[Rfam]
Source information:
Rfam assigns this 104-nucleotide RNA sequence from Rhodococcus oxybenzonivorans to the family "TPP riboswitch aptamer (THI element)".
RNA sequence: GCCAGUGACACGGGGUGCUGCCCGGCGAAAGCUGGGCGGCUGAGAACACACCCGUCGAACCUGAACUAGGUAGUGCUAGCGAAGGGAUGUCGCGCCGACCGCUG
Numbered sequence: 001g002c003c004a005g006u007g008a009c010a011c012g013g014g015g016u017g018c019u020g021c022c023c024g025g026c027g028a029a030a031g032c033u034g035g036g037c038g039g040c041u042g043a044g045a046a047c048a049c050a051c052c053c054g055u056c057g058a059a060c061c062u063g064a065a066c067u068a069g070g071u072a073g074u075g076c077u078a079g080c081g082a083a084g085g086g087a088u089g090u091c092g093c094g095c096c097g098a099c100c101g102c103u104g
Stems, first nucleotide, its partner, number of pairs: 006092005011054004016048001017040009060085003066079004
A search with the family's covariance model found it, with a score of 63 bits. NCBI's taxonomy places the organism under Bacteria, Bacillati, Actinomycetota, Actinomycetes, Rhodococcus.